[Rfam]
A member of the RNA family "Bacterial RNase P class A" from Frisingicoccus caecimuris, 349 nucleotides long. Gene Ontology terms of the family: tRNA processing, dimeric ribonuclease P complex and ribonuclease P activity. It scores 310 bits against the family's covariance model. Ribonuclease P (RNase P) is a ubiquitous endoribonuclease, found in archaea, bacteria and eukarya as well as chloroplasts and mitochondria. Pairs were carried over by alignment from the consensus structure, which is taken from published work.

RNA sequence: CAAGUCUGCCAAAUGGUCGCGCCUGUAUCUACCGAAAGGUUUCAGGUGAGGAAAGUCCGAGCUUCGCAGGGCAGGAUGCCGGAUAACGUCCGGUGGAGGCGACUCUAAGGAAAGUGCAACAGAAAUAAACCGCCGGUAUCGACCGGCAAGGGUGGAAAGGCGGGGUAAGAGCCCACCGUCCUUCUGGUAACAGGAGGGGCUAUGUAAACCCCAUCCGAAGCAAGACCGCACAUGAGACGAUACGGCGGCCCGUCGUGUCUCAGGGUAGGUUGCUGGAGCUUCCUGGCAACAGGAAGUCGAGAUAGAUGACCAUUUUUAACAUAACUCGGCUUACAGGCAGACUUGAAAA
Numbered sequence: 001c002a003a004g005u006c007u008g009c010c011a012a013a014u015g016g017u018c019g020c021g022c023c024u025g026u027a028u029c030u031a032c033c034g035a036a037a038g039g040u041u042u043c044a045g046g047u048g049a050g051g052a053a054a055g056u057c058c059g060a061g062c063u064u065c066g067c068a069g070g071g072c073a074g075g076a077u078g079c080c081g082g083a084u085a086a087c088g089u090c091c092g093g094u095g096g097a098g099g100c101g102a103c104u105c106u107a108a109g110g111a112a113a114g115u116g117c118a119a120c121a122g123a124a125a126u127a128a129a130c131c132g133c134c135g136g137u138a139u140c141g142a143c144c145g146g147c148a149a150g151g152g153u154g155g156a157a158a159g160g161c162g163g164g165g166u167a168a169g170a171g172c173c174c175a176c177c178g179u180c181c182u183u184c185u186g187g188u189a190a191c192a193g194g195a196g197g198g199g200c201u202a203u204g205u206a207a208a209c210c211c212c213a214u215c216c217g218a219a220g221c222a223a224g225a226c227c228g229c230a231c232a233u234g235a236g237a238c239g240a241u242a243c244g245g246c247g248g249c250c251c252g253u254c255g256u257g258u259c260u261c262a263g264g265g266u267a268g269g270u271u272g273c274u275g276g277a278g279c280u281u282c283c284u285g286g287c288a289a290c291a292g293g294a295a296g297u298c299g300a301g302a303u304a305g306a307u308g309a310c311c312a313u314u315u316u317u318a319a320c321a322u323a324a325c326u327c328g329g330c331u332u333a334c335a336g337g338c339a340g341a342c343u344u345g346a347a348a349a
Base pairs, nucleotide, nucleotide: 001345002344003343004342005341006340007339008338009337010336012314013313014312015311016310017309018308020048021047022046023045024044025043027041053332054331055330057329058328059327060326061325062220063219064218065217069251070250071249072248074216075215076214077213078212079093080092081091082090083089094108095106096105097104098103109211110210114209115208116205117204118203130151131150132147133146134145135144136143137142159177160176162174163173164172178200179198180197181196182195183194184193185192186191224271225270226269227268233262234261235260236259237258238257242256243255244254245253246252278297279296280295281294282293283292284291285290